The family of this 161-nucleotide RNA sequence from Gracilibacillus dipsosauri is "glmS glucosamine-6-phosphate activated ribozyme aptamer". The match comes from Rfam's covariance-model search (124 bits). Rfam classes the family as a riboswitch. The organism belongs to Gracilibacillus, within Bacteria.
[Rfam]
RNA sequence: AUUUUUUAUAAAGCGCCAGGGCUAUAGGUAGCUAUAGCUGACGAGGUGGAGGUUUAUCGAAGUAGAUCGGCGGAUGCCUCCCGGUUGUCCAUCUCAACCGAGAAGUUUUUAUCGAAAACAAGAAGGCGACUUUUUGUACAAAAAUAAAAACAAGAUGAACA
Numbered sequence: 001a002u003u004u005u006u007u008a009u010a011a012a013g014c015g016c017c018a019g020g021g022c023u024a025u026a027g028g029u030a031g032c033u034a035u036a037g038c039u040g041a042c043g044a045g046g047u048g049g050a051g052g053u054u055u056a057u058c059g060a061a062g063u064a065g066a067u068c069g070g071c072g073g074a075u076g077c078c079u080c081c082c083g084g085u086u087g088u089c090c091a092u093c094u095c096a097a098c099c100g101a102g103a104a105g106u107u108u109u110u111a112u113c114g115a116a117a118a119c120a121a122g123a124a125g126g127c128g129a130c131u132u133u134u135u136g137u138a139c140a141a142a143a144a145u146a147a148a149a150a151c152a153a154g155a156u157g158a159a160c161a
Stems, first nucleotide, its partner, number of pairs: 020039008048081005057070004082100006105151007119136007